RNA sequence: AGUCUGACAGGAGUCUUAAUUUAUUUCAUAAUCUUUACUGUGUAAGAGUCUUUGGAGUUUUUAAAUGAUUGCUUCUUCUUUACACA
Numbered sequence: 001a002g003u004c005u006g007a008c009a010g011g012a013g014u015c016u017u018a019a020u021u022u023a024u025u026u027c028a029u030a031a032u033c034u035u036u037a038c039u040g041u042g043u044a045a046g047a048g049u050c051u052u053u054g055g056a057g058u059u060u061u062u063a064a065a066u067g068a069u070u071g072c073u074u075c076u077u078c079u080u081u082a083c084a085c086a
Base pairs, nucleotide, nucleotide: 009079010078011077012076016064017063018062019061025055026054031049032048034046035045036044037043038042
Background: The record is an 86-nucleotide RNA from Sorex araneus, which matches "Stem loopII regulatory element in POLB" in Rfam. The sequence is in the family's curated seed alignment. It is annotated as a cis-regulatory element. Gene Ontology term of the family: regulation of RNA stability. For this family Rfam cites "Hairpin structure within the 3'UTR of DNA polymerase beta mRNA acts as a post-transcriptional regulatory element and interacts with Hax-1" (Sarnowska et al., Nucleic Acids Res, 2007). Rfam 15.1 lists 197 matches to the family in 138 species.